Annotation: The record is a 76-nucleotide RNA sequence from Suricata suricatta, which matches "mir-1 microRNA precursor family" in Rfam.
RNA sequence: CUCGAGGCCACAUGCUUCUUUAUAUCCCCAUACGGAUUACGUUACUAUGGAAUGUAAGGAAGUGUGUGGUUUCGGC
Numbered sequence: 001c002u003c004g005a006g007g008c009c010a011c012a013u014g015c016u017u018c019u020u021u022a023u024a025u026c027c028c029c030a031u032a033c034g035g036a037u038u039a040c041g042u043u044a045c046u047a048u049g050g051a052a053u054g055u056a057a058g059g060a061a062g063u064g065u066g067u068g069g070u071u072u073c074g075g076c
Base pairs, nucleotide, nucleotide: 007070008069009068010067011066012065013064014063015062016061017060018059019058020057021056022055023054024053025052028050029049030048031047032046
From the family's description: This family represents the microRNA (miRNA) mir-1 family. miRNAs are transcribed as ~70nt precursors (modelled here) and subsequently processed by the Dicer enzyme to give a ~22nt product. Rfam links the family to the GO terms miRNA-mediated post-transcriptional gene silencing and RISC complex. A reference for the family is Ambros (2001), "microRNAs: tiny regulators with great potential", Cell. The family has 137 seed sequences and 4,474 matches in Rfam 15.1. Taxonomically the source falls in Suricata (Eukaryota, Deuterostomia, Craniata, Amniota).